[Rfam]
RNA sequence: AGGACAGUAUCCGUUUGUGAACUGUACCUCUUCUUAAUUUACCAUAAACUACAAAAAAUCUGCCUUGAUCUUGAACGAAGACAGGGACGGAAGA
Numbered sequence: 001a002g003g004a005c006a007g008u009a010u011c012c013g014u015u016u017g018u019g020a021a022c023u024g025u026a027c028c029u030c031u032u033c034u035u036a037a038u039u040u041a042c043c044a045u046a047a048a049c050u051a052c053a054a055a056a057a058a059u060c061u062g063c064c065u066u067g068a069u070c071u072u073g074a075a076c077g078a079a080g081a082c083a084g085g086g087a088c089g090g091a092a093g094a
Base pairs, nucleotide, nucleotide: 001029002028003027004025005024006023007022008021010020011019060090061089062088063086064085065084066083067082069081070080071079

Rfam assigns this 94-nucleotide RNA from Caryophanon tenue to the family "pan motif".
The match comes from Rfam's covariance-model search (68 bits).